[Rfam]
RNA sequence: GUUCCCUGUGAUGCCCUUUUUCAAUACCAUGCAAAUGCUGAUAUUAGAUGAUUAAGACAUCAGUUUAUUUUACUAAGGGAGCC
Numbered sequence: 001g002u003u004c005c006c007u008g009u010g011a012u013g014c015c016c017u018u019u020u021u022c023a024a025u026a027c028c029a030u031g032c033a034a035a036u037g038c039u040g041a042u043a044u045u046a047g048a049u050g051a052u053u054a055a056g057a058c059a060u061c062a063g064u065u066u067a068u069u070u071u072a073c074u075a076a077g078g079g080a081g082c083c
Base pairs, nucleotide, nucleotide: 001082002081003080004079005078006077007076

Rfam assigns this 83-nucleotide RNA from Arachis hypogaea to the family "Small nucleolar RNA snoR53Y". It scores 51 bits against the family's covariance model. By type it is a C/D-box small nucleolar RNA. Clan: snoR53 clan. The family has 7 seed sequences and 513 matches in Rfam 15.1. Rfam links the family to the GO terms nucleolus and RNA processing. For this family Rfam cites "Multiple snoRNA gene clusters from Arabidopsis" (Brown et al., RNA, 2001).